Annotation: This 123-nucleotide sequence from Thermoanaerobacter brockii belongs to the Rfam family "Ribosomal protein L20 leader". Rfam links the family to the GO term regulation of gene expression.
RNA sequence: GCGAAUAAGUAGAAGCGCCCGCUUCUCACCUUUCACCGAAGGUGCAAAGGUUUCUUCAAAAGUAUUUAUCUUUGUUUUAUUGUAAAGAAGCGGGUAUUUCUAUAUCCGCUUUUAUUUUUUCAU
Numbered sequence: 001g002c003g004a005a006u007a008a009g010u011a012g013a014a015g016c017g018c019c020c021g022c023u024u025c026u027c028a029c030c031u032u033u034c035a036c037c038g039a040a041g042g043u044g045c046a047a048a049g050g051u052u053u054c055u056u057c058a059a060a061a062g063u064a065u066u067u068a069u070c071u072u073u074g075u076u077u078u079a080u081u082g083u084a085a086a087g088a089a090g091c092g093g094g095u096a097u098u099u100c101u102a103u104a105u106c107c108g109c110u111u112u113u114a115u116u117u118u119u120u121c122a123u
Base pairs, nucleotide, nucleotide: 011026012025013024014023015022016021028051029050030049034044035043036042037041089110090109091108092107093106094105095104096103097102
NCBI's taxonomy places the organism under Bacteria, Clostridia, Thermoanaerobacteraceae, Thermoanaerobacter, Thermoanaerobacter brockii. Rfam classes the family as a cis-regulatory leader.